A member of the RNA family "RNA anti-toxin A" from Vagococcus salmoninarum, 87 nucleotides long. The organism belongs to Vagococcus, within Bacteria. It is annotated as an antitoxin RNA.
RNA sequence: UAAUUUAACUGAAAAGAGAGAUAUGCUGAAACAUACCUCCCUUUGUAGAACCGUUUUAAGACGGUAGCUGUUGAAUAUAAAAAAAUA
Numbered sequence: 001u002a003a004u005u006u007a008a009c010u011g012a013a014a015a016g017a018g019a020g021a022u023a024u025g026c027u028g029a030a031a032c033a034u035a036c037c038u039c040c041c042u043u044u045g046u047a048g049a050a051c052c053g054u055u056u057u058a059a060g061a062c063g064g065u066a067g068c069u070g071u072u073g074a075a076u077a078u079a080a081a082a083a084a085a086u087a
Stems, first nucleotide, its partner, number of pairs: 022035004050065006